RNA sequence: AGAGGUCACAAGCUUGAGGCCAUAGCAGAAGCACUCAUGGUACAGUCCUGUCAGAUUCCAAUGAAUCUGCAAAUUUUGCU
Number, nucleotide and partner (000 for none) at each position: 001a000002g000003a000004g000005g000006u000007c000008a000009c000010a000011a000012g000013c000014u000015u000016g048017a000018g047019g046020c045021c000022a000023u000024a080025g079026c078027a077028g076029a075030a074031g043032c000033a041034c000035u000036c000037a000038u000039g000040g000041u033042a000043c031044a000045g020046u019047c018048c016049u000050g000051u000052c069053a068054g067055a066056u065057u064058c063059c000060a000061a000062u000063g058064a057065a056066u055067c054068u053069g052070c000071a000072a000073a000074u030075u029076u028077u027078g026079c025080u024